RNA sequence: ACACGCGAAGGGAGGUGGUCCAAGGCAUGAAGUCUUAUCGGACUCGUGAGGUGGCGGCGGGCUGACCGCCAACCACUAGUUGUGGGCAAGUGUGCGGCCAAUUCAACGCCGCCACCGGGCCCGCGGGCAGUCAGGUAGUCCGCCUGACCCUGAGCGUGACCACCCGGUCAUGUCUUUGGAAGCGCCCGCGGGCUUCUUUCU
Numbered sequence: 001a002c003a004c005g006c007g008a009a010g011g012g013a014g015g016u017g018g019u020c021c022a023a024g025g026c027a028u029g030a031a032g033u034c035u036u037a038u039c040g041g042a043c044u045c046g047u048g049a050g051g052u053g054g055c056g057g058c059g060g061g062c063u064g065a066c067c068g069c070c071a072a073c074c075a076c077u078a079g080u081u082g083u084g085g086g087c088a089a090g091u092g093u094g095c096g097g098c099c100a101a102u103u104c105a106a107c108g109c110c111g112c113c114a115c116c117g118g119g120c121c122c123g124c125g126g127g128c129a130g131u132c133a134g135g136u137a138g139u140c141c142g143c144c145u146g147a148c149c150c151u152g153a154g155c156g157u158g159a160c161c162a163c164c165c166g167g168u169c170a171u172g173u174c175u176u177u178g179g180a181a182g183c184g185c186c187c188g189c190g191g192g193c194u195u196c197u198u199u200c201u
Stems, first nucleotide, its partner, number of pairs: 015058002018055002060099005065093002068091002073085003117195012130148006
RNA: Actinobacteria sRNA Ms_IGR-5